RNA sequence: CCCCCUCAGCCUUACUCCAGGGCCUUUUGCUGUAAAGCGCCCUGGCAUUGCCCGGGGGGACAUGAAAGAGCACAGAUUCCCUCCCCCAGGGGACACCGCUUUCUUGGGGGGCCUACGGACUGAGCUGACAGU
Numbered sequence: 001c002c003c004c005c006u007c008a009g010c011c012u013u014a015c016u017c018c019a020g021g022g023c024c025u026u027u028u029g030c031u032g033u034a035a036a037g038c039g040c041c042c043u044g045g046c047a048u049u050g051c052c053c054g055g056g057g058g059g060a061c062a063u064g065a066a067a068g069a070g071c072a073c074a075g076a077u078u079c080c081c082u083c084c085c086c087c088a089g090g091g092g093a094c095a096c097c098g099c100u101u102u103c104u105u106g107g108g109g110g111g112c113c114u115a116c117g118g119a120c121u122g123a124g125c126u127g128a129c130a131g132u
Base pairs, nucleotide, nucleotide: 003058004057005056006055007054009052011050017045018044019043020042021041022040024037025036026035027034069126070125071124073122074121083111084110085109086108087107090105091104092103093102
Dot-bracket structure: ..(((((.(.(.....((((((.((((......))))..))))))....).).)))))..........(((.((........(((((..((((........)))).))))).........)).)))......
Overview
Rfam assigns this 132-nucleotide sequence from Phyllostomus discolor to the family "Small nucleolar RNA SNORA49". Lineage of the source: Eukaryota > Vertebrata > Euteleostomi > Yangochiroptera > Phyllostomus. About the family: The snoRNA ACA49 has no identified RNA target. NB genomic sequence 1-nt different from published. The family's consensus secondary structure was predicted with RNAalifold. The match comes from Rfam's covariance-model search (117 bits).